[Rfam]
RNA sequence: UCGGCGUAAUGCGAUAAGCAGGUGCGGAACCGGAACCGCAAAAGUGAGCGGCACAUCAUAGAAGCACGAGUGACUGCGUGCGUUUUUUGUCAAAGGUGGCACGCGCACUGGAAGUGCCAGUUUAAAAACUGACGUUCCAACCGAAUGGCCAAGCAUUCGGGGCAAAAAUCUGCAGUGUGUUUUGGUAAACAAAUUUCGGAACAAAAGCAUUUGUAAGUCACUACAAAUGUUUUUGU
Number, nucleotide and partner (000 for none) at each position: 001u050002c000003g000004g000005c000006g000007u000008a000009a000010u000011g000012c000013g000014a000015u000016a000017a000018g000019c000020a000021g000022g000023u040024g039025c038026g037027g036028a000029a000030c199031c198032g197033g196034a195035a000036c027037c026038g025039c024040a023041a000042a000043a000044g000045u000046g000047a000048g000049c000050g001051g180052c179053a178054c177055a176056u175057c000058a000059u000060a000061g000062a000063a000064g081065c080066a079067c078068g077069a000070g221071u220072g219073a218074c217075u216076g000077c068078g067079u066080g065081c064082g170083u000084u168085u167086u166087u165088u164089g163090u162091c161092a000093a000094a000095g000096g000097u000098g000099g000100c000101a000102c000103g000104c000105g000106c000107a000108c000109u000110g000111g000112a000113a000114g000115u000116g000117c000118c000119a000120g000121u000122u000123u000124a000125a000126a000127a000128a000129c000130u000131g000132a000133c000134g000135u000136u000137c000138c000139a000140a000141c000142c000143g000144a000145a000146u000147g000148g000149c000150c000151a000152a000153g000154c000155a000156u000157u000158c000159g000160g000161g091162g090163c089164a088165a087166a086167a085168a084169u000170c082171u000172g000173c000174a000175g056176u055177g054178u053179g052180u051181u000182u000183u000184g000185g000186u000187a000188a000189a000190c000191a000192a000193a000194u000195u034196u033197c032198g031199g030200a000201a000202c000203a234204a233205a232206a231207g230208c229209a228210u227211u226212u225213g224214u000215a000216a075217g074218u073219c072220a071221c070222u000223a000224c213225a212226a211227a210228u209229g208230u207231u206232u205233u204234u203235g000236u000